[Rfam]
RNA sequence: CGGCCGCGCCGCGUGCCGGGGAACCGCGCGGCAGGCGGUCCCGUACCGAACGGAAAGG
Numbered sequence: 001c002g003g004c005c006g007c008g009c010c011g012c013g014u015g016c017c018g019g020g021g022a023a024c025c026g027c028g029c030g031g032c033a034g035g036c037g038g039u040c041c042c043g044u045a046c047c048g049a050a051c052g053g054a055a056a057g058g
Base pairs, nucleotide, nucleotide: 008032009031010030011029012028013027036048037047038046039045
RNA: M23 RNA